[Rfam]
RNA sequence: UGUGAGAGUGAUGAGUGGCACAAAUCAGUUGGGGUGUCUGCUGCAGUGGCAUCAGCACCCUGACCCGACCCCAACCUGAGGACACACACAGUGCACAGGGGCCAUCUGACUCAAC
Numbered sequence: 001u002g003u004g005a006g007a008g009u010g011a012u013g014a015g016u017g018g019c020a021c022a023a024a025u026c027a028g029u030u031g032g033g034g035u036g037u038c039u040g041c042u043g044c045a046g047u048g049g050c051a052u053c054a055g056c057a058c059c060c061u062g063a064c065c066c067g068a069c070c071c072c073a074a075c076c077u078g079a080g081g082a083c084a085c086a087c088a089c090a091g092u093g094c095a096c097a098g099g100g101g102c103c104a105u106c107u108g109a110c111u112c113a114a115c
Stems, first nucleotide, its partner, number of pairs: 006112003025068002028065001029063004034058003040053001042051003
RNA: Small nucleolar RNA SNORD67